RNA: Small nucleolar RNA SNORA73 family
RNA sequence: CCAAUGAGGGCGUCCAUGGGAGUUCGCUCUCCCGUGGCUCUGUCCGAGUGGCGUAUGGGAGCGUAGGCCUCUGGGCCCUUGACGUACAGUCCCAUUCCACAGCGUUGGAGAGAGUGCCUGUCCCCGGCCCUUGGGCUGGUGAGGACAGCAGCCUGUAUAUUCCUAUACCUUCUCAGAGUCCAGCGGGCAAUGACUGAGGAGAUAAACCAUGCAGGGUACAAUU
Numbered sequence: 001c002c003a004a005u006g007a008g009g010g011c012g013u014c015c016a017u018g019g020g021a022g023u024u025c026g027c028u029c030u031c032c033c034g035u036g037g038c039u040c041u042g043u044c045c046g047a048g049u050g051g052c053g054u055a056u057g058g059g060a061g062c063g064u065a066g067g068c069c070u071c072u073g074g075g076c077c078c079u080u081g082a083c084g085u086a087c088a089g090u091c092c093c094a095u096u097c098c099a100c101a102g103c104g105u106u107g108g109a110g111a112g113a114g115u116g117c118c119u120g121u122c123c124c125c126g127g128c129c130c131u132u133g134g135g136c137u138g139g140u141g142a143g144g145a146c147a148g149c150a151g152c153c154u155g156u157a158u159a160u161u162c163c164u165a166u167a168c169c170u171u172c173u174c175a176g177a178g179u180c181c182a183g184c185g186g187g188c189a190a191u192g193a194c195u196g197a198g199g200a201g202a203u204a205a206a207c208c209a210u211g212c213a214g215g216g217u218a219c220a221a222u223u
Stems, first nucleotide, its partner, number of pairs: 001108006008045005014037003019030004048100004057093004061087001063085002066080002152215007169201006178188004